The record is a 43-nucleotide RNA sequence from Erbovirus aequirhi, which matches "Coronavirus 3' stem-loop II-like motif (s2m)" in Rfam. Rfam's curators put it in the seed alignment. On this family, see Jonassen et al., J Gen Virol 1998: "A common RNA motif in the 3' end of the genomes of astroviruses, avian infectious bronchitis virus and an equine rhinovirus". It is annotated as a cis-regulatory element. From the family's description: The s2m motif is found in the 3' UTRs of astrovirus, coronavirus and equine rhinovirus genomes.

[Rfam]
RNA sequence: ACUCGCCGAGGCCACGCCGAGUAGGACCGAGGGUACAGCGAGU
Numbered sequence: 001a002c003u004c005g006c007c008g009a010g011g012c013c014a015c016g017c018c019g020a021g022u023a024g025g026a027c028c029g030a031g032g033g034u035a036c037a038g039c040g041a042g043u
Stems, first nucleotide, its partner, number of pairs: 002042005011034003015029002017025002